[Rfam]
RNA: S4-Flavobacteria ribosomal protein leader
RNA sequence: GAACUAAAGGAUUAACGUAAGACCUUAAUUUAGUUC
Numbered sequence: 001g002a003a004c005u006a007a008a009g010g011a012u013u014a015a016c017g018u019a020a021g022a023c024c025u026u027a028a029u030u031u032a033g034u035u036c
Base pairs, nucleotide, nucleotide: 001036002035003034004033005032006031007026008025009024010023